RNA sequence: AUGUAGUGUGACAUGCCCGUUUGGGUUUUACUCUGAUGUGUGUUUAAUUAUUAUUUAAUUACUUUUGGGUAACGAGGUGUUACAAGUCC
Numbered sequence: 001a002u003g004u005a006g007u008g009u010g011a012c013a014u015g016c017c018c019g020u021u022u023g024g025g026u027u028u029u030a031c032u033c034u035g036a037u038g039u040g041u042g043u044u045u046a047a048u049u050a051u052u053a054u055u056u057a058a059u060u061a062c063u064u065u066u067g068g069g070u071a072a073c074g075a076g077g078u079g080u081u082a083c084a085a086g087u088c089c
Stems, first nucleotide, its partner, number of pairs: 003088001007084008016076001018074004
The family of this 89-nucleotide sequence from Medicago truncatula is "MIR2617 microRNA precursor family". The family has 3 seed sequences and 1,174 matches in Rfam 15.1. The base pairs follow the family's consensus structure, which was predicted with RNAalifold. Lineage of the source: Eukaryota > Streptophyta > Pentapetalae > fabids > Medicago.